[Rfam]
RNA sequence: CCCCCACCCAUGUUUGUAGGAUCCCAAAGGAUCACCAUAAAAUUUGGUACAGAUCUCUAAAAACGUUAUCACAUGGAUGUGAGACUUGACUUUUUUAAAGAUCUGUUCCAAAUUUAAUAGUGAUCCUUUGGGAUCCUACACACAUAGGUGGGAG
Numbered sequence: 001c002c003c004c005c006a007c008c009c010a011u012g013u014u015u016g017u018a019g020g021a022u023c024c025c026a027a028a029g030g031a032u033c034a035c036c037a038u039a040a041a042a043u044u045u046g047g048u049a050c051a052g053a054u055c056u057c058u059a060a061a062a063a064c065g066u067u068a069u070c071a072c073a074u075g076g077a078u079g080u081g082a083g084a085c086u087u088g089a090c091u092u093u094u095u096u097a098a099a100g101a102u103c104u105g106u107u108c109c110a111a112a113u114u115u116a117a118u119a120g121u122g123a124u125c126c127u128u129u130g131g132g133a134u135c136c137u138a139c140a141c142a143c144a145u146a147g148g149u150g151g152g153a154g
Stems, first nucleotide, its partner, number of pairs: 003152006010145004015140014030125003034121002037118002040115008049106008058097006065090004069082005
Dot-bracket structure: ..((((((.((((.((((((((((((((.(((.((.((.((((((((.((((((((.((((((.(((((((((....)))))....)))).)))))).)))))))).)))))))).)).)).))).)))))))))))))).)))).))))))..